[Rfam]
RNA: skipping-rope RNA
Organism: Streptococcus sp. sy004
RNA sequence: AACACCGAGGGCGGAAGAGGCAGCCGGCCGCACCAAUUUGGUAUGAAAGAGAUGUAGGAGGGCCAACCUACCGGAUGUU
Numbered sequence: 001a002a003c004a005c006c007g008a009g010g011g012c013g014g015a016a017g018a019g020g021c022a023g024c025c026g027g028c029c030g031c032a033c034c035a036a037u038u039u040g041g042u043a044u045g046a047a048a049g050a051g052a053u054g055u056a057g058g059a060g061g062g063c064c065a066a067c068c069u070a071c072c073g074g075a076u077g078u079u
Stems, first nucleotide, its partner, number of pairs: 001079004005074003010029002012026003019064003031049001032042004054071005